[Rfam]
RNA: Eukaryotic large subunit ribosomal RNA, nucleotides 3420 to 3841
RNA sequence: GACCACCGUCGUUGCAACGGUAAUCCUGCUCAGUACGAGAGGAACCGCAGGUUCAGACAUUUGGUUUACGUGCUUGGCUGAUAAGCCAAUGGUGCGAGGCUACCAUCUGAGGGAUUAUGACUGAACGCCUCUAAGUCAGAAUCCCGCCCGAAUAUGUAACGAUACUUUCAGUGCCUCUGCGUUCCGGAGGCUGCGAUACACGCCGCGGUGUGACAGCCGCGGCGGUGUGAAGCCACAGGAAGGGUCAUCAGCCGCUCGCGCCGAGCAGUGCGCGGCGGGGACCAGAACGAUAUUCACCCCAUGCGACGUGGAGGUGCCAAAUCAUUCGUAGACGACCUAGUUCUCGGUCGGGGUGUCGUACUUAGUAGAGCAGCCACCUCACUGCGAUCUAUUGAGACUCAGCCUUGGACCAGGAGAUUUGU
Numbered sequence: 001g002a003c004c005a006c007c008g009u010c011g012u013u014g015c016a017a018c019g020g021u022a023a024u025c026c027u028g029c030u031c032a033g034u035a036c037g038a039g040a041g042g043a044a045c046c047g048c049a050g051g052u053u054c055a056g057a058c059a060u061u062u063g064g065u066u067u068a069c070g071u072g073c074u075u076g077g078c079u080g081a082u083a084a085g086c087c088a089a090u091g092g093u094g095c096g097a098g099g100c101u102a103c104c105a106u107c108u109g110a111g112g113g114a115u116u117a118u119g120a121c122u123g124a125a126c127g128c129c130u131c132u133a134a135g136u137c138a139g140a141a142u143c144c145c146g147c148c149c150g151a152a153u154a155u156g157u158a159a160c161g162a163u164a165c166u167u168u169c170a171g172u173g174c175c176u177c178u179g180c181g182u183u184c185c186g187g188a189g190g191c192u193g194c195g196a197u198a199c200a201c202g203c204c205g206c207g208g209u210g211u212g213a214c215a216g217c218c219g220c221g222g223c224g225g226u227g228u229g230a231a232g233c234c235a236c237a238g239g240a241a242g243g244g245u246c247a248u249c250a251g252c253c254g255c256u257c258g259c260g261c262c263g264a265g266c267a268g269u270g271c272g273c274g275g276c277g278g279g280g281a282c283c284a285g286a287a288c289g290a291u292a293u294u295c296a297c298c299c300c301a302u303g304c305g306a307c308g309u310g311g312a313g314g315u316g317c318c319a320a321a322u323c324a325u326u327c328g329u330a331g332a333c334g335a336c337c338u339a340g341u342u343c344u345c346g347g348u349c350g351g352g353g354u355g356u357c358g359u360a361c362u363u364a365g366u367a368g369a370g371c372a373g374c375c376a377c378c379u380c381a382c383u384g385c386g387a388u389c390u391a392u393u394g395a396g397a398c399u400c401a402g403c404c405u406u407g408g409a410c411c412a413g414g415a416g417a418u419u420u421g422u
Stems, first nucleotide, its partner, number of pairs: 008163008018150003023053001025051005054109004062102003069096005074089006111145003118138005173315011319420005325339001328336001346411004351405003355398002363391003367388001370385004
Dot-bracket structure: .......((((((((..(((..(.(((((.................))))).)((((....(((....(((((((((((....))))))..)))))...)))...)))).(((....(((((...........)))))....)))..))).....)))))))).........(((((((((((.........................................................................................................................)))))))))))...(((((.(..(.......)..)......((((.(((.((......(((.(..((((........))))..)))).....))....)))..))))....)))))..